Shown here is a 79-nucleotide RNA from Nothobranchius furzeri, a member of the family "mir-27 microRNA precursor family". Its family is annotated with RISC complex and miRNA-mediated post-transcriptional gene silencing in the Gene Ontology. The organism belongs to Nothobranchius, within Eukaryota. A reference for the family is Chen et al. (2005), "The developmental miRNA profiles of zebrafish as determined by small RNA cloning", Genes Dev.
RNA sequence: UUAAGACGCAGAGCUUAGAUCAUUGGUGAGCAUUGAUCCAAACAAGAAUUGUUCACAGUGGCUAAGUUCAGUGUCUGAC
Numbered sequence: 001u002u003a004a005g006a007c008g009c010a011g012a013g014c015u016u017a018g019a020u021c022a023u024u025g026g027u028g029a030g031c032a033u034u035g036a037u038c039c040a041a042a043c044a045a046g047a048a049u050u051g052u053u054c055a056c057a058g059u060g061g062c063u064a065a066g067u068u069c070a071g072u073g074u075c076u077g078a079c
Base pairs, nucleotide, nucleotide: 011069012068013067014066015065016064017063018062020060026056027055028054029053030052031051032050